[Rfam]
RNA sequence: ACCCUUGUGACUGCAAGAAAGGCAACACGUAGCGAGAACGUGCAAGGGU
Numbered sequence: 001a002c003c004c005u006u007g008u009g010a011c012u013g014c015a016a017g018a019a020a021g022g023c024a025a026c027a028c029g030u031a032g033c034g035a036g037a038a039c040g041u042g043c044a045a046g047g048g049u
Base pairs, nucleotide, nucleotide: 001049002048003047004046005045006044007043011021012020017033023036026042027041028040029039030038
Dot-bracket structure: (((((((...((....[..)).{..(((((..]..}.))))))))))))

The record is a 49-nucleotide sequence, which matches "DUF2693-FD RNA" in Rfam. The sequence is in the family's curated seed alignment. About the family: DUF2693-FD RNA is a non-coding RNA (ncRNA) recognised in Bacteroides by a bioinformatic analisis by Zasha Weinberg.